[Rfam]
RNA sequence: GGUCAUGAGUACCAGCGACAAGCCCUGGCUAGCUGGUCGGCAACCCUCCUCCAUACCGUUUGUCUUCGCGCAGGCGGCUCAUCCACGGCGGGGUGCUCCAGGUGACGACCUGGCCGCGCUCAACCGUGCGCGGCAAGCGUGGACU
Numbered sequence: 001g002g003u004c005a006u007g008a009g010u011a012c013c014a015g016c017g018a019c020a021a022g023c024c025c026u027g028g029c030u031a032g033c034u035g036g037u038c039g040g041c042a043a044c045c046c047u048c049c050u051c052c053a054u055a056c057c058g059u060u061u062g063u064c065u066u067c068g069c070g071c072a073g074g075c076g077g078c079u080c081a082u083c084c085a086c087g088g089c090g091g092g093g094u095g096c097u098c099c100a101g102g103u104g105a106c107g108a109c110c111u112g113g114c115c116g117c118g119c120u121c122a123a124c125c126g127u128g129c130g131c132g133g134c135a136a137g138c139g140u141g142g143a144c145u
Stems, first nucleotide, its partner, number of pairs: 001110004009038001011037006021030002039097003044093003048088002113134007121126001

SAM (S-adenosyl methionine) riboswitch aptamer: a 145-nucleotide RNA from Mycobacteroides franklinii.
Rfam describes the family as follows. SAM-IV is a mRNA element that regulates gene expression via direct sensing of S-adenosylmethionine (SAM or AdoMet).
Pairs were carried over by alignment from the consensus structure, which is taken from published work.